Shown here is a 52-nucleotide RNA sequence from Solanum lycopersicum, a member of the family "MIR1886 microRNA precursor family". Taxonomically the source falls in Solanum subgen. Lycopersicon (Eukaryota, Viridiplantae, Tracheophyta, Euphyllophyta). It scores 65 bits against the family's covariance model. The family's consensus secondary structure was predicted with RNAalifold.

RNA sequence: UGAGAUGAAAUCAGCGUUUGAAUAUAUGAUUUUACCCUAAUUUCAUCUCAUG
Numbered sequence: 001u002g003a004g005a006u007g008a009a010a011u012c013a014g015c016g017u018u019u020g021a022a023u024a025u026a027u028g029a030u031u032u033u034a035c036c037c038u039a040a041u042u043u044c045a046u047c048u049c050a051u052g
Stems, first nucleotide, its partner, number of pairs: 001050011013038002016035002018029003